[Rfam]
RNA sequence: GGGCAAUGAUGAUGCAAAAGUCAUGCACCACUCUGAAUGAGAGGAUUUUCUCUCUUUGGGCUGACAAGCAAACUUUCUACCCAUUUUUUGUCGAAGCCU
Numbered sequence: 001g002g003g004c005a006a007u008g009a010u011g012a013u014g015c016a017a018a019a020g021u022c023a024u025g026c027a028c029c030a031c032u033c034u035g036a037a038u039g040a041g042a043g044g045a046u047u048u049u050c051u052c053u054c055u056u057u058g059g060g061c062u063g064a065c066a067a068g069c070a071a072a073c074u075u076u077c078u079a080c081c082c083a084u085u086u087u088u089u090g091u092c093g094a095a096g097c098c099u
Stems, first nucleotide, its partner, number of pairs: 001099004

This 99-nucleotide RNA from Zea mays belongs to the Rfam family "Small nucleolar RNA Z221/R21b". Its family is annotated with nucleolus and RNA processing in the Gene Ontology. The organism belongs to Zea, within Eukaryota.